[Rfam]
RNA sequence: GCGGUGGCCGUGUUAACCAGACGCGACGGUAGGGCGGACAGGACAGUUUUUCUGGUUUCCGGUCCUGGCCAACGAAACGGCAGGCGAGCGCAUAACCCGUCCGGCCG
Numbered sequence: 001g002c003g004g005u006g007g008c009c010g011u012g013u014u015a016a017c018c019a020g021a022c023g024c025g026a027c028g029g030u031a032g033g034g035c036g037g038a039c040a041g042g043a044c045a046g047u048u049u050u051u052c053u054g055g056u057u058u059c060c061g062g063u064c065c066u067g068g069c070c071a072a073c074g075a076a077a078c079g080g081c082a083g084g085c086g087a088g089c090g091c092a093u094a095a096c097c098c099g100u101c102c103g104g105c106c107g
Stems, first nucleotide, its partner, number of pairs: 006106004011023004025101004029096001034091003039067006068081003
Dot-bracket structure: .....((((.((((.....)))).(((((....(((..((((((.................))))))(((........))).......)))....).)))).)))).

Rhizobiales sRNA Atu_At1: a 107-nucleotide RNA sequence from Phyllobacterium sp. YR620. Pairs were carried over by alignment from the consensus structure, which was predicted with CMfinder. NCBI's taxonomy places the organism under Bacteria, Pseudomonadati, Alphaproteobacteria, Hyphomicrobiales, Phyllobacterium.